[Rfam]
RNA sequence: AUAAAAUAUUAAGACCUCCCACAUAUAUGCUAGAGAAUAUGGCUCUAGUGUCUCUACCCGACACCGUAAAUGUUGGACUAUGCGGGAAAGCAACUUUUGG
Numbered sequence: 001a002u003a004a005a006a007u008a009u010u011a012a013g014a015c016c017u018c019c020c021a022c023a024u025a026u027a028u029g030c031u032a033g034a035g036a037a038u039a040u041g042g043c044u045c046u047a048g049u050g051u052c053u054c055u056a057c058c059c060g061a062c063a064c065c066g067u068a069a070a071u072g073u074u075g076g077a078c079u080a081u082g083c084g085g086g087a088a089a090g091c092a093a094c095u096u097u098u099g100g
Base pairs, nucleotide, nucleotide: 018086019085020084022082023081024080025079029049030048031047032046033045034044035043058076059075060074061073062072063071